[Rfam]
RNA sequence: CUUGGUUUAUUAAUAAGUAGUAAAUAUAUAGAGAAAUUUGUAUAUGAUGAAUGAUGGUUCAUUCAUUCCACUUGAAUUGCUGGAAAGUCGUAAAGCUGACGGAACGACAACGUAAAGAUGAAAGAGGCUUAAGCGUGAACGUGGCGAAAGCAGAAAAAAUUCGUCAGAUGGUUUAAGGUUAAAUCCUAAGAACUGUAAGAAUCGAUAAUCAGCAGCGAAGACUUGAAUAGAGUAACGUUCAACGACUAUCCUUUUAGGAGUAGGAUGAAGUCAUCCGAAGUAAGUGGCGCUUAACACAUUAUGGUGAAGCUGAAGAUAUAGUCUGUGCUGUAUGGAAACAUACAG
Numbered sequence: 001c002u003u004g005g006u007u008u009a010u011u012a013a014u015a016a017g018u019a020g021u022a023a024a025u026a027u028a029u030a031g032a033g034a035a036a037u038u039u040g041u042a043u044a045u046g047a048u049g050a051a052u053g054a055u056g057g058u059u060c061a062u063u064c065a066u067u068c069c070a071c072u073u074g075a076a077u078u079g080c081u082g083g084a085a086a087g088u089c090g091u092a093a094a095g096c097u098g099a100c101g102g103a104a105c106g107a108c109a110a111c112g113u114a115a116a117g118a119u120g121a122a123a124g125a126g127g128c129u130u131a132a133g134c135g136u137g138a139a140c141g142u143g144g145c146g147a148a149a150g151c152a153g154a155a156a157a158a159a160u161u162c163g164u165c166a167g168a169u170g171g172u173u174u175a176a177g178g179u180u181a182a183a184u185c186c187u188a189a190g191a192a193c194u195g196u197a198a199g200a201a202u203c204g205a206u207a208a209u210c211a212g213c214a215g216c217g218a219a220g221a222c223u224u225g226a227a228u229a230g231a232g233u234a235a236c237g238u239u240c241a242a243c244g245a246c247u248a249u250c251c252u253u254u255u256a257g258g259a260g261u262a263g264g265a266u267g268a269a270g271u272c273a274u275c276c277g278a279a280g281u282a283a284g285u286g287g288c289g290c291u292u293a294a295c296a297c298a299u300u301a302u303g304g305u306g307a308a309g310c311u312g313a314a315g316a317u318a319u320a321g322u323c324u325g326u327g328c329u330g331u332a333u334g335g336a337a338a339c340a341u342a343c344a345g
Base pairs, nucleotide, nucleotide: 005025006024007023008022009021010020011019012018030038031037068287069286070285071284073282074281078214079213080212081211082210083209088205089204090203215238216237220233242324244323245322246321247320248319289310290309291308292307294305295304330343331342332341333340334339